Shown here is a 195-nucleotide RNA sequence from Sodalis sp. TME1, a member of the family "Yersinia sRNA 276". A search with the family's covariance model found it, with a score of 144 bits. It is annotated as an antisense RNA. For this family Rfam cites "Transcriptomic profiling of Yersinia pseudotuberculosis reveals reprogramming of the Crp regulon by temperature and uncovers Crp as a master regulator of small RNAs" (Nuss et al., PLoS Genet, 2015). The base pairs follow the family's consensus structure, which was predicted with RNAfold. The organism belongs to Sodalis, within Bacteria.
RNA sequence: CACCGACAUCAGCGAUUCAUUGGCCGAGCCCUGACCGACCGCCAGAUAGGCGUUCAUGCCCAGCUCUUUCAUCUGCUGUUCGCCGAUGACCCGGGUCGUGGUGGCUUUGCCGUAGCCGUCGGCCAACUGGCGCGCCUGCGAGGCCAGAUAGGCCGGAUUGCAAAUAUUGGGCGGCAUGUUGCCCAAAUCUUUAGC
Numbered sequence: 001c002a003c004c005g006a007c008a009u010c011a012g013c014g015a016u017u018c019a020u021u022g023g024c025c026g027a028g029c030c031c032u033g034a035c036c037g038a039c040c041g042c043c044a045g046a047u048a049g050g051c052g053u054u055c056a057u058g059c060c061c062a063g064c065u066c067u068u069u070c071a072u073c074u075g076c077u078g079u080u081c082g083c084c085g086a087u088g089a090c091c092c093g094g095g096u097c098g099u100g101g102u103g104g105c106u107u108u109g110c111c112g113u114a115g116c117c118g119u120c121g122g123c124c125a126a127c128u129g130g131c132g133c134g135c136c137u138g139c140g141a142g143g144c145c146a147g148a149u150a151g152g153c154c155g156g157a158u159u160g161c162a163a164a165u166a167u168u169g170g171g172c173g174g175c176a177u178g179u180u181g182c183c184c185a186a187a188u189c190u191u192u193a194g195c
Stems, first nucleotide, its partner, number of pairs: 005189002012032001014030001016028003033043001035041001050059002062077003078135002081132005087126001092122001094120003099112005137162002140159002144155001167186006